[Rfam]
RNA sequence: CCAGAAAAGUUACUCCGUGAUAGCUUUUAAUAGUAGGCUCAAAGUGUCCUGCUAGUCGGCCCGCCCUGCCCUUCCCUUUCGUUCUCUCUUCCAAGAGAACCUUGCUAGGGGCGGUCACCGGCGACACUGUCAAAUUGCGGGGAGGCCCUUAGAGCUUGAGAUACCGCGGCCCGCCGAAAGGUUGGGCGUCAGCACCAGGGUAAUGACCUCGGGGAUGGUAACAACUCUCAAGAUUAGGUUAUCCGCAGCCAAGUCCUAAGGGGACCACGCCGGUCCUAUGGAUGCAGUUCAUCGACUAGAUGGCAGUGGGCUCCUCUCUGCCUACCCGGCAGAUGGGGCUUAAGAUAUAGUCAGUCCCGCCAGAGAUGGCGCC
Numbered sequence: 001c002c003a004g005a006a007a008a009g010u011u012a013c014u015c016c017g018u019g020a021u022a023g024c025u026u027u028u029a030a031u032a033g034u035a036g037g038c039u040c041a042a043a044g045u046g047u048c049c050u051g052c053u054a055g056u057c058g059g060c061c062c063g064c065c066c067u068g069c070c071c072u073u074c075c076c077u078u079u080c081g082u083u084c085u086c087u088c089u090u091c092c093a094a095g096a097g098a099a100c101c102u103u104g105c106u107a108g109g110g111g112c113g114g115u116c117a118c119c120g121g122c123g124a125c126a127c128u129g130u131c132a133a134a135u136u137g138c139g140g141g142g143a144g145g146c147c148c149u150u151a152g153a154g155c156u157u158g159a160g161a162u163a164c165c166g167c168g169g170c171c172c173g174c175c176g177a178a179a180g181g182u183u184g185g186g187c188g189u190c191a192g193c194a195c196c197a198g199g200g201u202a203a204u205g206a207c208c209u210c211g212g213g214g215a216u217g218g219u220a221a222c223a224a225c226u227c228u229c230a231a232g233a234u235u236a237g238g239u240u241a242u243c244c245g246c247a248g249c250c251a252a253g254u255c256c257u258a259a260g261g262g263g264a265c266c267a268c269g270c271c272g273g274u275c276c277u278a279u280g281g282a283u284g285c286a287g288u289u290c291a292u293c294g295a296c297u298a299g300a301u302g303g304c305a306g307u308g309g310g311c312u313c314c315u316c317u318c319u320g321c322c323u324a325c326c327c328g329g330c331a332g333a334u335g336g337g338g339c340u341u342a343a344g345a346u347a348u349a350g351u352c353a354g355u356c357c358c359g360c361c362a363g364a365g366a367u368g369g370c371g372c373c
Stems, first nucleotide, its partner, number of pairs: 125308005131302002136247006147238003151234001248288002253283004261276002264274002292353001294352005310339005317332001358371005